RNA: Burkholderia RNA 7 (anti-hemB)
Organism: beta proteobacterium AAP99
RNA sequence: UCUCCCGCUUCUCCUCCCUGAGCGGGUGCCAGCUGAAUCCCCCCUGAUGUUCAGCUGGUGUUUGAAUGCCUCGCGCGCCAGACGCUGCGAGGCAUUUUUUUU
Numbered sequence: 001u002c003u004c005c006c007g008c009u010u011c012u013c014c015u016c017c018c019u020g021a022g023c024g025g026g027u028g029c030c031a032g033c034u035g036a037a038u039c040c041c042c043c044c045u046g047a048u049g050u051u052c053a054g055c056u057g058g059u060g061u062u063u064g065a066a067u068g069c070c071u072c073g074c075g076c077g078c079c080a081g082a083c084g085c086u087g088c089g090a091g092g093c094a095u096u097u098u099u100u101u102u
Base pairs, nucleotide, nucleotide: 004026005025006024007023008022009021028059029058030057031056032055033054034053035052036051037050038049067094068093069092070091071090072089073088074087